[Rfam]
RNA sequence: AACUACACUAUCAAUGAAUGGACUCACCCGCGGGAUGACGUGGUGUUUUACAUAGGACGAGGUCAUGGCAUCCUAUUACCAGCCAUCGCACGAAAUUAAUAGGAUAUGCCACGCAUCGCACGGAAAUUAAUAGGAUAUGCCACGUCAUCAUCCUAGAUGGAACAACCACGUCAUCUCACUGGUGAAUCCAUUCAUCGAUAGUGUAAUU
Numbered sequence: 001a002a003c004u005a006c007a008c009u010a011u012c013a014a015u016g017a018a019u020g021g022a023c024u025c026a027c028c029c030g031c032g033g034g035a036u037g038a039c040g041u042g043g044u045g046u047u048u049u050a051c052a053u054a055g056g057a058c059g060a061g062g063u064c065a066u067g068g069c070a071u072c073c074u075a076u077u078a079c080c081a082g083c084c085a086u087c088g089c090a091c092g093a094a095a096u097u098a099a100u101a102g103g104a105u106a107u108g109c110c111a112c113g114c115a116u117c118g119c120a121c122g123g124a125a126a127u128u129a130a131u132a133g134g135a136u137a138u139g140c141c142a143c144g145u146c147a148u149c150a151u152c153c154u155a156g157a158u159g160g161a162a163c164a165a166c167c168a169c170g171u172c173a174u175c176u177c178a179c180u181g182g183u184g185a186a187u188c189c190a191u192u193c194a195u196c197g198a199u200a201g202u203g204u205a206a207u208u
Stems, first nucleotide, its partner, number of pairs: 001208002004205004009200004014195002017192003021188002024185005030179001032177002035174005041168003044164004050158001053155002056152002062146001064144001068140003071135008085127002